Shown here is a 76-nucleotide RNA sequence from Cyphomyrmex costatus, a member of the family "HDV ribozyme from F. prausnitzii".
The literature on the family includes a 2009 paper in Science by Webb et al., "Widespread occurrence of self-cleaving ribozymes".
Rfam 15.1 lists 3,803 matches to the family in 91 species.
It scores 46 bits against the family's covariance model.
RNA sequence: GGUUAUCGAUAAGCGUCCACCUCCUCGCGGUGAUAACCGGGCAACGUUGAAUUCAUCAGCGGCAAAGGACGUCUAA
Numbered sequence: 001g002g003u004u005a006u007c008g009a010u011a012a013g014c015g016u017c018c019a020c021c022u023c024c025u026c027g028c029g030g031u032g033a034u035a036a037c038c039g040g041g042c043a044a045c046g047u048u049g050a051a052u053u054c055a056u057c058a059g060c061g062g063c064a065a066a067g068g069a070c071g072u073c074u075a076a
Stems, first nucleotide, its partner, number of pairs: 001038007019031003045061005